[Rfam]
RNA sequence: CCAUCCAAUGCAAACUGCUUUAACCGAGACCUGUGAGCAGUAUAAGCAAUAGUCUCUCAUAUCCAGUAGCGAGGGGUUACUGGAAAUAAGUUUCGCA
Numbered sequence: 001c002c003a004u005c006c007a008a009u010g011c012a013a014a015c016u017g018c019u020u021u022a023a024c025c026g027a028g029a030c031c032u033g034u035g036a037g038c039a040g041u042a043u044a045a046g047c048a049a050u051a052g053u054c055u056c057u058c059a060u061a062u063c064c065a066g067u068a069g070c071g072a073g074g075g076g077u078u079a080c081u082g083g084a085a086a087u088a089a090g091u092u093u094c095g096c097a
Stems, first nucleotide, its partner, number of pairs: 015040006026056005062084007
Dot-bracket structure: ..............((((((.....[[[[[....))))))...........]]]]].....(((((((.........))))))).............
Rfam assigns this 97-nucleotide RNA to the family "PhotoRC-II RNA". The base pairs follow the family's consensus structure, which is taken from published work.